[Rfam]
RNA sequence: GACGGGUUGAUAGGGGUAAAUAAAACACCUGCAAAGGAAAUAGCCCCAGCCGUCUUUGAGCGGUAGUUGAGACCCGUUGCCCUAUU
Numbered sequence: 001g002a003c004g005g006g007u008u009g010a011u012a013g014g015g016g017u018a019a020a021u022a023a024a025a026c027a028c029c030u031g032c033a034a035a036g037g038a039a040a041u042a043g044c045c046c047c048a049g050c051c052g053u054c055u056u057u058g059a060g061c062g063g064u065a066g067u068u069g070a071g072a073c074c075c076g077u078u079g080c081c082c083u084a085u086u
Stems, first nucleotide, its partner, number of pairs: 001078007013047004019041001028037003049064005

This 86-nucleotide RNA from Moraxella cuniculi belongs to the Rfam family "sRNA-Xcc1". The family's consensus secondary structure was predicted with RNAalifold. The literature on the family includes a 2011 paper in RNA Biol by Chen et al., "sRNA-Xcc1, an integron-encoded transposon- and plasmid-transferred trans-acting sRNA, is under the positive control of the key virulence regulators HrpG and HrpX of Xanthomonas campestris pathovar campestris". The family's RNA type in Rfam is small RNA.